[Rfam]
RNA sequence: CCGGUCGAGAGGCGCUGCAACGGGCUGACGCCCGCCACGCUCGGCCGGGCGACGUUUCGUCAAGGGCGCCUCCCGAGA
Numbered sequence: 001c002c003g004g005u006c007g008a009g010a011g012g013c014g015c016u017g018c019a020a021c022g023g024g025c026u027g028a029c030g031c032c033c034g035c036c037a038c039g040c041u042c043g044g045c046c047g048g049g050c051g052a053c054g055u056u057u058c059g060u061c062a063a064g065g066g067c068g069c070c071u072c073c074c075g076a077g078a
Stems, first nucleotide, its partner, number of pairs: 002047007021034005

Rfam assigns this 78-nucleotide sequence from Sphaerimonospora thailandensis to the family "SAH (S-adenosyl-L-homocysteine) riboswitch aptamer". NCBI's taxonomy places the organism under Bacteria, Bacillati, Actinomycetota, Streptosporangiaceae, Sphaerimonospora. The match comes from Rfam's covariance-model search (39 bits).